[Rfam]
Notes:
A member of the RNA family "MIR9563 microRNA precursor family" from Brassica rapa, 118 nucleotides long.

RNA sequence: AGAAUAUAAGAAACCGUUUCUUAACUUUUAACUAAAAAAUUAAGAACCGGCUCUUAAAUAUUUAAGAGCCGGUUCUUAAUUUUUUAGUUAAAAGUUAAGAGAUGGUUUCUUAUAUUUC
Numbered sequence: 001a002g003a004a005u006a007u008a009a010g011a012a013a014c015c016g017u018u019u020c021u022u023a024a025c026u027u028u029u030a031a032c033u034a035a036a037a038a039a040u041u042a043a044g045a046a047c048c049g050g051c052u053c054u055u056a057a058a059u060a061u062u063u064a065a066g067a068g069c070c071g072g073u074u075c076u077u078a079a080u081u082u083u084u085u086a087g088u089u090a091a092a093a094g095u096u097a098a099g100a101g102a103u104g105g106u107u108u109c110u111u112a113u114a115u116u117u118c
Stems, first nucleotide, its partner, number of pairs: 002117045